[Rfam]
RNA sequence: UAGUUAAAACGCUCGUAGUUUAUACGUAGGAGAUUAUUGAGAUCACUUGGUGUGGCGAACAUUUUCGUACCAUUACACUCAUUUUAUGGGUCUUGGUAUCGAAAGUGACCUUACGGUUUAUUCGUCACAUCCUUAGGCGACGAGUGGCUAAUACCCAUGAGUCACAAGUGUGAUCAGUAACUCUGCCCAGGAACCGUGAACAAAUUAAUGUGUUUAAGGCAAGCUCGUGUAUUCAAUACAUAGCUUGAAUAAUUUAGCAUGGAACCACUAUACCCUCCUUUUGGAGGGACCUGGUAAUAAAAGCUCGGCGGAGGACUCUGGUAUUGCGCACUUAGAGGUGAAAUUCCGAUAUUUCCGCAAGACGAACGGAUGCGUAGGCUGUCAUUGCCCAUCACACCUUUAUUGAUCAGGAACGAGAGUCAGGGGAUCGAAGAUGAUUAGAUACCGUCGUAGUCCUGACUGUAAACUAUACUAACAAGAGUUUGUGUAGACACUACUCUGUAUGAUCUUCGCAGAAUCCAAGGGAAACCUCAAGUUUUUGGGUUCUGGGGGGAGUAUAGUCGCAAGGCCGAAACUUAAAGGAAU
Numbered sequence: 001u002a003g004u005u006a007a008a009a010c011g012c013u014c015g016u017a018g019u020u021u022a023u024a025c026g027u028a029g030g031a032g033a034u035u036a037u038u039g040a041g042a043u044c045a046c047u048u049g050g051u052g053u054g055g056c057g058a059a060c061a062u063u064u065u066c067g068u069a070c071c072a073u074u075a076c077a078c079u080c081a082u083u084u085u086a087u088g089g090g091u092c093u094u095g096g097u098a099u100c101g102a103a104a105g106u107g108a109c110c111u112u113a114c115g116g117u118u119u120a121u122u123c124g125u126c127a128c129a130u131c132c133u134u135a136g137g138c139g140a141c142g143a144g145u146g147g148c149u150a151a152u153a154c155c156c157a158u159g160a161g162u163c164a165c166a167a168g169u170g171u172g173a174u175c176a177g178u179a180a181c182u183c184u185g186c187c188c189a190g191g192a193a194c195c196g197u198g199a200a201c202a203a204a205u206u207a208a209u210g211u212g213u214u215u216a217a218g219g220c221a222a223g224c225u226c227g228u229g230u231a232u233u234c235a236a237u238a239c240a241u242a243g244c245u246u247g248a249a250u251a252a253u254u255u256a257g258c259a260u261g262g263a264a265c266c267a268c269u270a271u272a273c274c275c276u277c278c279u280u281u282u283g284g285a286g287g288g289a290c291c292u293g294g295u296a297a298u299a300a301a302a303g304c305u306c307g308g309c310g311g312a313g314g315a316c317u318c319u320g321g322u323a324u325u326g327c328g329c330a331c332u333u334a335g336a337g338g339u340g341a342a343a344u345u346c347c348g349a350u351a352u353u354u355c356c357g358c359a360a361g362a363c364g365a366a367c368g369g370a371u372g373c374g375u376a377g378g379c380u381g382u383c384a385u386u387g388c389c390c391a392u393c394a395c396a397c398c399u400u401u402a403u404u405g406a407u408c409a410g411g412a413a414c415g416a417g418a419g420u421c422a423g424g425g426g427a428u429c430g431a432a433g434a435u436g437a438u439u440a441g442a443u444a445c446c447g448u449c450g451u452a453g454u455c456c457u458g459a460c461u462g463u464a465a466a467c468u469a470u471a472c473u474a475a476c477a478a479g480a481g482u483u484u485g486u487g488u489a490g491a492c493a494c495u496a497c498u499c500u501g502u503a504u505g506a507u508c509u510u511c512g513c514a515g516a517a518u519c520c521a522a523g524g525g526a527a528a529c530c531u532c533a534a535g536u537u538u539u540u541g542g543g544u545u546c547u548g549g550g551g552g553g554a555g556u557a558u559a560g561u562c563g564c565a566a567g568g569c570c571g572a573a574a575c576u577u578a579a580a581g582g583a584a585u
Stems, first nucleotide, its partner, number of pairs: 001548003009545001011414001013412002018407003300401004307395001310392001313390002316387001319384001321363001324360005330354001335346003369380001372379002419460006429453001433449004471544003474537003479519002483515005489509002494505001523530002550577003560569003
Record summary: Shown here is a 585-nucleotide part of an RNA from Paravahlkampfia sp. A1PW2, a member of the family "Eukaryotic small subunit ribosomal RNA". Lineage of the source: Eukaryota > Discoba > Tetramitia > Eutetramitea > Paravahlkampfia. The literature on the family includes a 2001 paper in Science by Yusupov et al., "Crystal structure of the ribosome at 5.5 A resolution". Clan: SSU clan.